This 164-nucleotide RNA from Comamonas sp. JNW belongs to the Rfam family "Manganese Mn2+ riboswitch aptamer (yybP-ykoY)". The match comes from Rfam's covariance-model search (54 bits).
Nucleotides: 164
Base pairs, nucleotide, nucleotide: 018034019033020032035078036077037076038075039074040073041072042071043070044069052068053067054066055065056064085163
Number, partner (000 for none) and nucleotide at each position: 001000c002000c003000c004000u005000u006000g007000g008000g009000g010000a011000g012000u013000a014000g015000c016000c017000u018034g019033c020032u021000u022000c023000c024000g025000c026000g027000c028000u029000g030000g031000a032020a033019g034018c035078g036077u037076c038075u039074g040073c041072g042071u043070c044069a045000a046000c047000a048000u049000a050000c051000u052068c053067g054066g055065c056064a057000u058000u059000u060000c061000g062000c063000a064056u065055g066054c067053u068052g069044u070043g071042g072041c073040g074039c075038a076037g077036a078035c079000a080000u081000c082000c083000g084000u085163u086000c087000u088000u089000c090000g091000g092000u093000u094000g095000g096000c097000g098000a099000g100000a101000c102000c103000a104000u105000c106000g107000g108000c109000a110000u111000g112000c113000c114000a115000g116000c117000a118000c119000g120000a121000c122000c123000u124000c125000g126000g127000u128000c129000g130000g131000g132000c133000a134000g135000u136000g137000g138000u139000g140000g141000c142000g143000u144000g145000c146000c147000g148000u149000u150000g151000u152000g153000c154000u155000c156000a157000u158000g159000c160000c161000c162000g163085a164000c